[Rfam]
RNA sequence: ACCGCUCUGUUUUCUCGAAGCCCUGCGCGCCGCGCGGGGUACUGACAUAGAGAAGAUGGGGCGGG
Number, nucleotide and partner (000 for none) at each position: 001a000002c064003c063004g062005c061006u060007c059008u058009g057010u056011u055012u054013u053014c052015u051016c050017g000018a000019a000020g040021c039022c038023c037024u036025g035026c034027g033028c032029g000030c000031c000032g028033c027034g026035c025036g024037g023038g022039g021040u020041a000042c000043u000044g000045a000046c000047a000048u000049a000050g016051a015052g014053a013054a012055g011056a010057u009058g008059g007060g006061g005062c004063g003064g002065g000
RNA: DUF3800-VIII RNA